[Rfam]
RNA: sodF sRNA
Organism: Streptomyces sp. M41(2017)
RNA sequence: GCGUCCUGCUCGUGAUCGUCUUCUCACCCUUCACGGAGCGGGCGGAAGAAAGGGAGCCCCCGCGAGGACAUGACUCGCGGGGGCUCUCC
Numbered sequence: 001g002c003g004u005c006c007u008g009c010u011c012g013u014g015a016u017c018g019u020c021u022u023c024u025c026a027c028c029c030u031u032c033a034c035g036g037a038g039c040g041g042g043c044g045g046a047a048g049a050a051a052g053g054g055a056g057c058c059c060c061c062g063c064g065a066g067g068a069c070a071u072g073a074c075u076c077g078c079g080g081g082g083g084c085u086c087u088c089c
Base pairs, nucleotide, nucleotide: 002044003043005042006041007040008039009038010037011036012034013033014032015031018028052088053087054086055085056084057083058082059081060080061079062078063077064076065075066074